[Rfam]
RNA sequence: GAAGUCAUGCUUCGUAAAUAAAUUUCUGGCAGACAUCCUGAUCCCGCAAGGGAUAAAAAAAGGCGACUCAUAAUAAGUCGCCUUUUUUGUGCCC
Numbered sequence: 001g002a003a004g005u006c007a008u009g010c011u012u013c014g015u016a017a018a019u020a021a022a023u024u025u026c027u028g029g030c031a032g033a034c035a036u037c038c039u040g041a042u043c044c045c046g047c048a049a050g051g052g053a054u055a056a057a058a059a060a061a062g063g064c065g066a067c068u069c070a071u072a073a074u075a076a077g078u079c080g081c082c083u084u085u086u087u088u089g090u091g092c093c094c
Stems, first nucleotide, its partner, number of pairs: 001013004023035001025033002042053004056088013
RNA: STnc250 Hfq binding RNA